Shown here is a 90-nucleotide RNA sequence, a member of the family "c-di-GMP-II-GAG riboswitch aptamer".
Nucleotides: 090
Stems, first nucleotide, its partner, number of pairs: 001090002004087001006085003010081002013065003022059008040077002042073005
Number, partner (000 for none) and nucleotide at each position: 001090a002089g003000g004087g005000u006085g007084a008083u009000u010081g011080g012000a013065c014064g015063c016000u017000u018000u019000g020000a021000c022059c023058c024057c025056u026055c027054g028053c029052c030000a031000g032000u033000a034000a035000c036000a037000c038000g039000c040077g041076g042073u043072c044071a045070c046069c047000a048000a049000g050000u051000g052029g053028g054027c055026g056025g057024g058023g059022g060000u061000g062000a063015g064014c065013g066000a067000a068000u069046g070045g071044u072043g073042a074000g075000a076041c077040c078000g079000a080011u081010c082000c083008a084007u085006c086000c087004c088000a089002c090001u

Gene Ontology terms of the family: regulation of gene expression and cyclic-di-GMP binding. It is one of the family's seed sequences.